[Rfam]
RNA sequence: AGUGGCGUGAGAAUGAACGCUGCGAAUCAUGGUGUCCAACAUAGCCAGUGUGGCUGAAUGGAGCUGCAGGAUAUGCGUCCAUCACAGUAAAUGAAUGGCAGUGGUGACAAUGAGGCCUGUAGCAUUU
Dot-bracket structure: .((..(((.....((.((((...........)))).)).........)))..))...........(((((.........((((((...............)))))).........))))).......
A member of the RNA family "Small nucleolar RNA SNORA1" from Ochotona princeps, 127 nucleotides long. Pairs were carried over by alignment from the consensus structure, which was predicted with PFOLD. The family's RNA type in Rfam is H/ACA-box small nucleolar RNA. Rfam describes the family as follows. ACA1 is a member of the H/ACA class of snoRNA that guide the sites of modification of uridines to pseudouridines. The organism belongs to Ochotona, within Eukaryota.